[Rfam]
RNA sequence: CGAGUUAACUAUUGUUAAGGAACUCUGCAAAUUAAUCCCGUAAGUUCGCGAGAAGGGAUGCUCAUUAAUUUGAGCCGCAGUGAAGAGCGAGGGGGAACUGUUUAACAAAAACACAGCUCUAUGCUAAAUCGUAAGAUGAUGUAUAUGGGGUGACACCUGCCCAGUGCCGGAAGGUUAAGGAAGGAUGUUAGGAGCAAUCUGAAGCAUUUGACCGAAGCCCUGGUGAACGGCGGCCGUAACUAUAACGGUCCUAAGGUAGCGAAAUGCCUUGUCGGGUAAAUUCCGUCCCGCUUGAAUGGUGUAAUCAUCUCUUGACUGUCUCGACAAUAGACUCG
Numbered sequence: 001c002g003a004g005u006u007a008a009c010u011a012u013u014g015u016u017a018a019g020g021a022a023c024u025c026u027g028c029a030a031a032u033u034a035a036u037c038c039c040g041u042a043a044g045u046u047c048g049c050g051a052g053a054a055g056g057g058a059u060g061c062u063c064a065u066u067a068a069u070u071u072g073a074g075c076c077g078c079a080g081u082g083a084a085g086a087g088c089g090a091g092g093g094g095g096a097a098c099u100g101u102u103u104a105a106c107a108a109a110a111a112c113a114c115a116g117c118u119c120u121a122u123g124c125u126a127a128a129u130c131g132u133a134a135g136a137u138g139a140u141g142u143a144u145a146u147g148g149g150g151u152g153a154c155a156c157c158u159g160c161c162c163a164g165u166g167c168c169g170g171a172a173g174g175u176u177a178a179g180g181a182a183g184g185a186u187g188u189u190a191g192g193a194g195c196a197a198u199c200u201g202a203a204g205c206a207u208u209u210g211a212c213c214g215a216a217g218c219c220c221u222g223g224u225g226a227a228c229g230g231c232g233g234c235c236g237u238a239a240c241u242a243u244a245a246c247g248g249u250c251c252u253a254a255g256g257u258a259g260c261g262a263a264a265u266g267c268c269u270u271g272u273c274g275g276g277u278a279a280a281u282u283c284c285g286u287c288c289c290g291c292u293u294g295a296a297u298g299g300u301g302u303a304a305u306c307a308u309c310u311c312u313u314g315a316c317u318g319u320c321u322c323g324a325c326a327a328u329a330g331a332c333u334c335g
Stems, first nucleotide, its partner, number of pairs: 001335004009330008018321003035059005044049001060075005076080001088314007095306002099113003116151008124141001128137003154301004159231003164228002166224005173219003179213002183209006191200002232250006251255001261288001271287001273285004
This 335-nucleotide part of an RNA from Malacoplasma iowae belongs to the Rfam family "Bacterial large subunit ribosomal RNA". The family's consensus secondary structure is taken from published work. A search with the family's covariance model found it, with a score of 2754 bits.